[Rfam]
RNA sequence: GCUAUUCUGUGACUAGGCCUGUUCUGUGACAGCGCCCCCAUUAGGCUGAGGAACGAAUCCCUGUUGCCUUCCUUCUGAGAACAGC
Numbered sequence: 001g002c003u004a005u006u007c008u009g010u011g012a013c014u015a016g017g018c019c020u021g022u023u024c025u026g027u028g029a030c031a032g033c034g035c036c037c038c039c040a041u042u043a044g045g046c047u048g049a050g051g052a053a054c055g056a057a058u059c060c061c062u063g064u065u066g067c068c069u070u071c072c073u074u075c076u077g078a079g080a081a082c083a084g085c
Stems, first nucleotide, its partner, number of pairs: 001085003005081001
RNA: Small nucleolar RNA U83B